Rfam assigns this 171-nucleotide sequence from Peribacillus cavernae to the family "glmS glucosamine-6-phosphate activated ribozyme aptamer". The family's consensus secondary structure is taken from published work.
RNA sequence: UUCACUUUAAAAGCGCCAGGACUGAGCACGGACGAAAACUGCUUAGUUGACGAGGAGGAGGUUUAUCGAGUGUUCGGCGGAUGCCUCCCGGCUGCAAGUGCACAGCCGCAAAAAUUCCUGUUUUAAAACAGCGGGGCAACCUGCUGCACAAAGAAUAGGAAAUGCGCACAU
Numbered sequence: 001u002u003c004a005c006u007u008u009a010a011a012a013g014c015g016c017c018a019g020g021a022c023u024g025a026g027c028a029c030g031g032a033c034g035a036a037a038a039c040u041g042c043u044u045a046g047u048u049g050a051c052g053a054g055g056a057g058g059a060g061g062u063u064u065a066u067c068g069a070g071u072g073u074u075c076g077g078c079g080g081a082u083g084c085c086u087c088c089c090g091g092c093u094g095c096a097a098g099u100g101c102a103c104a105g106c107c108g109c110a111a112a113a114a115u116u117c118c119u120g121u122u123u124u125a126a127a128a129c130a131g132c133g134g135g136g137c138a139a140c141c142u143g144c145u146g147c148a149c150a151a152a153g154a155a156u157a158g159g160a161a162a163u164g165c166g167c168a169c170a171u
Stems, first nucleotide, its partner, number of pairs: 020048008057088005066077004089108006115161007129146007

It scores 133 bits against the family's covariance model. This entry contains a glucosamine-6-phosphate activated ribozyme that is found in the mRNA for GlmS. GlmS is an enzyme that uses fructose-6-phosphate and glutamine to generate glucosamine-6-phosphate. NCBI's taxonomy places the organism under Bacteria, Bacillota, Bacilli, Bacillaceae, Peribacillus.